[Rfam]
This 75-nucleotide sequence from Nitrospira japonica belongs to the Rfam family "tRNA". The family's RNA type in Rfam is transfer RNA. Taxonomically the source falls in Nitrospira (Bacteria, Nitrospirota, Nitrospiria, Nitrospirales). Rfam's curators write: Transfer RNA (tRNA) molecules are approximately 80 nucleotides in length. The family's consensus secondary structure is taken from published work.
RNA sequence: GGUCCCAUCGUCUAGCCUGGCCUAGGACGGAGCCCUCUCAAGGCUCAGACACGGGUUCGAAUCCCGUUGGGACCA
Numbered sequence: 001g002g003u004c005c006c007a008u009c010g011u012c013u014a015g016c017c018u019g020g021c022c023u024a025g026g027a028c029g030g031a032g033c034c035c036u037c038u039c040a041a042g043g044c045u046c047a048g049a050c051a052c053g054g055g056u057u058c059g060a061a062u063c064c065c066g067u068u069g070g071g072a073c074c075a
Base pairs, nucleotide, nucleotide: 001074002073003072004071005070006069007068010028011027012026013025030046031045032044033043034042051067052066053065054064055063